Record summary
The family of this 99-nucleotide sequence from Mus musculus is "mir-1184 microRNA precursor family". The match comes from Rfam's covariance-model search (94 bits). The organism belongs to Mus, within Eukaryota.
[Rfam]
RNA sequence: CCUGCAGAACGAGGUGGAGGAGGUGGUUCUGCUCAGCGGUUAGCAGUGGCCACAUCUCCACCUGCAGCUUCUUGAUGCCUUCAGUGUCCUUUUCUUGGG
Numbered sequence: 001c002c003u004g005c006a007g008a009a010c011g012a013g014g015u016g017g018a019g020g021a022g023g024u025g026g027u028u029c030u031g032c033u034c035a036g037c038g039g040u041u042a043g044c045a046g047u048g049g050c051c052a053c054a055u056c057u058c059c060a061c062c063u064g065c066a067g068c069u070u071c072u073u074g075a076u077g078c079c080u081u082c083a084g085u086g087u088c089c090u091u092u093u094c095u096u097g098g099g
Stems, first nucleotide, its partner, number of pairs: 005097002007094003011091004020082004026076003031068003036065004046061004